[Rfam]
RNA sequence: AAGAAAGUGACUGCUGCCCCGCACAGGGGCGAAGCCAAUAGACCAAUAGCAAUGCAAGCUUCAUAGGAGCGCAAGCGCAUCAGACCGUUCAAAAAACACCAGCCCCAA
Numbered sequence: 001a002a003g004a005a006a007g008u009g010a011c012u013g014c015u016g017c018c019c020c021g022c023a024c025a026g027g028g029g030c031g032a033a034g035c036c037a038a039u040a041g042a043c044c045a046a047u048a049g050c051a052a053u054g055c056a057a058g059c060u061u062c063a064u065a066g067g068a069g070c071g072c073a074a075g076c077g078c079a080u081c082a083g084a085c086c087g088u089u090c091a092a093a094a095a096a097c098a099c100c101a102g103c104c105c106c107a108a
Stems, first nucleotide, its partner, number of pairs: 012079003015031006058070005